[Rfam]
Shown here is a 160-nucleotide part of an RNA from Sciurus carolinensis, a member of the family "Eukaryotic small subunit ribosomal RNA". It scores 1717 bits against the family's covariance model. Rfam 15.1 lists 75,755 matches to the family in 2,556 species. The source organism's lineage runs through Eukaryota, Bilateria, Craniata, Sciuromorpha and Sciurus.
Nucleotides: 160
Stems, first nucleotide, its partner, number of pairs: 001127001003124001006120002009117001011114005017108002021104001023103007032094003037089002040086001043083001047079009058068003129152010
Number, partner (000 for none) and nucleotide at each position: 001127c002000c003124g004000c005000c006120c007119g008000u009117c010000g011114c012113u013112c014111c015110u016000a017108c018107c019000g020000a021104u022000u023103g024102a025101g026100u027099g028098a029097u030000c031000c032094g033093g034092u035000a036000a037089a038088u039000u040086a041000u042000u043083u044000a045000g046000a047079c048078u049077g050076u051075a052074u053073u054072u055071a056000u057000a058068g059067c060066a061000g062000u063000a064000u065000u066060u067059g068058u069000a070000u071055u072054a073053g074052a075051u076050a077049u078048a079047g080000a081000a082000a083043g084000u085000u086040u087000u088038g089037u090000a091000a092034a093033u094032c095000u096000u097029a098028u099027c100026a101025c102024u103023u104021a105000g106000a107018g108017g109000a110015a111014g112013g113012a114011g115000a116000a117009g118000u119007c120006g121000u122000a123000a124003c125000a126000a127001g128000g129152u130151u131150u132149c133148c134147g135146u136145a137144g138143g139000u140000g141000a142000a143138c144137c145136u146135g147134c148133g149132g150131a151130a152129g153000g154000a155000u156000c157000a158000u159000u160000c